[Rfam]
SAM riboswitch aptamer (S box leader): a 148-nucleotide sequence from Pelodictyon luteolum.
Nucleotides: 148
Stems, first nucleotide, its partner, number of pairs: 001148002004146005013042005021031003026120003043113004048109002050106007117141001122138006
Number, partner (000 for none) and nucleotide at each position: 001148c002147u003000a004146u005145c006144a007143u008142c009000g010000a011000g012000a013042a014041a015040g016039g017038u018000g019000g020000a021031g022030g023029g024000a025000c026120u027119g028118g029023c030022c031021c032000u033000g034000a035000g036000a037000a038017g039016c040015c041014u042013u043113g044112g045111c046110a047000a048109c049108c050106g051105u052104c053103a054102u055101u056100g057000a058000c059000c060000g061000u062000c063000a064000g065000u066000g067000a068000u069000u070000c071000a072000a073000u074000g075000g076000a077000u078000u079000g080000c081000a082000u083000u084000g085000a086000u087000u088000c089000a090000u091000g092000u093000a094000u095000u096000g097000a098000g099000g100056u101055a102054a103053u104052g105051a106050u107000u108049g109048g110046u111045g112044c113043c114000a115000a116000u117141u118028c119027c120026a121000u122138c123137c124136c125135g126134g127133u128000u129000g130000a131000a132000g133127g134126c135125c136124g137123g138122g139000a140000a141117a142008g143007a144006u145005g146004a147002a148001g
It is one of the family's seed sequences.